[Rfam]
RNA sequence: ACUGCUUUUCUUUAAAGUCCCCUGAUGUUCGGGUCCCGCCAGUUUACUGGCGGGUUUUUUAUU
Numbered sequence: 001a002c003u004g005c006u007u008u009u010c011u012u013u014a015a016a017g018u019c020c021c022c023u024g025a026u027g028u029u030c031g032g033g034u035c036c037c038g039c040c041a042g043u044u045u046a047c048u049g050g051c052g053g054g055u056u057u058u059u060u061a062u063u
Stems, first nucleotide, its partner, number of pairs: 033056001035054008